[Rfam]
RNA sequence: UGCCGCAAACCCGUAGAUCCGAACUUGUGUUGAUAGAACACACAAGCUUGUGUCUAUAGGUAUGUGUCUG
Numbered sequence: 001u002g003c004c005g006c007a008a009a010c011c012c013g014u015a016g017a018u019c020c021g022a023a024c025u026u027g028u029g030u031u032g033a034u035a036g037a038a039c040a041c042a043c044a045a046g047c048u049u050g051u052g053u054c055u056a057u058a059g060g061u062a063u064g065u066g067u068c069u070g
Stems, first nucleotide, its partner, number of pairs: 002068001004066004010060002015055004020050003024046006
RNA: mir-10 microRNA precursor family